[Rfam]
RNA sequence: UGGACUGUAUUCUUAUGAAAUAGUACCACAUACAAUGUUUUUUAAUAUCCUUUUAUAGCUUAUAUCCGUAAGGAAUGGGACUUUGGG
Numbered sequence: 001u002g003g004a005c006u007g008u009a010u011u012c013u014u015a016u017g018a019a020a021u022a023g024u025a026c027c028a029c030a031u032a033c034a035a036u037g038u039u040u041u042u043u044a045a046u047a048u049c050c051u052u053u054u055a056u057a058g059c060u061u062a063u064a065u066c067c068g069u070a071a072g073g074a075a076u077g078g079g080a081c082u083u084u085g086g087g
Stems, first nucleotide, its partner, number of pairs: 001028003004024005010019002057082002059079005065074003
The record is an 87-nucleotide RNA sequence from Ruminococcus bovis, which matches "pan motif" in Rfam. The family's RNA type in Rfam is cis-regulatory element.